About this RNA
Rfam assigns this 171-nucleotide RNA sequence from Triticum aestivum to the family "MIR2118 microRNA precursor family". Its family is annotated with RISC complex and miRNA-mediated post-transcriptional gene silencing in the Gene Ontology. Taxonomically the source falls in Triticum (Eukaryota, Viridiplantae, Streptophyta, Streptophytina).

[Rfam]
RNA sequence: GCCCAGAAGAGGAAGAAUAGAGGGCCUUAGAGUAAUGGGAAUGGGAACAUGGAGGAAAGCCUAACUUCCUUGGUUUUGACCUCUUGUGCUGGAGGUGAUAAUCUAGUUUGGUGUUUCCCGAUGCCUCCCAUUCCUAUUAUUCUAAAGCACUCCUUCCUCUUCAUGUUUUGG
Numbered sequence: 001g002c003c004c005a006g007a008a009g010a011g012g013a014a015g016a017a018u019a020g021a022g023g024g025c026c027u028u029a030g031a032g033u034a035a036u037g038g039g040a041a042u043g044g045g046a047a048c049a050u051g052g053a054g055g056a057a058a059g060c061c062u063a064a065c066u067u068c069c070u071u072g073g074u075u076u077u078g079a080c081c082u083c084u085u086g087u088g089c090u091g092g093a094g095g096u097g098a099u100a101a102u103c104u105a106g107u108u109u110g111g112u113g114u115u116u117c118c119c120g121a122u123g124c125c126u127c128c129c130a131u132u133c134c135u136a137u138u139a140u141u142c143u144a145a146a147g148c149a150c151u152c153c154u155u156c157c158u159c160u161u162c163a164u165g166u167u168u169u170g171g
Base pairs, nucleotide, nucleotide: 009162010161011160012159013158015156016155017154020152021151022150025147027145028144029143030142031141032140033139034138036136037135038134039133040132041131042130043129044128045127046126048123049122050121052119054118055117057116058115059114060113